Shown here is a 62-nucleotide sequence from Duganella sp. CF517, a member of the family "Betaproteobacteria toxic small RNA".
Overexpression in amino aid rich medium attenuates growth, suggesting role in repressing amino acid intake and metabolism.
The base pairs follow the family's consensus structure, which was predicted with WAR.
A search with the family's covariance model found it, with a score of 64 bits.

RNA sequence: UGUCUCCUCUAUUCUCCUCCAAGGAAAUAGAUUUAGCCCGCUCCUGUAGCGGGCUUUUUUUU
Numbered sequence: 001u002g003u004c005u006c007c008u009c010u011a012u013u014c015u016c017c018u019c020c021a022a023g024g025a026a027a028u029a030g031a032u033u034u035a036g037c038c039c040g041c042u043c044c045u046g047u048a049g050c051g052g053g054c055u056u057u058u059u060u061u062u
Stems, first nucleotide, its partner, number of pairs: 008031005013025002035055008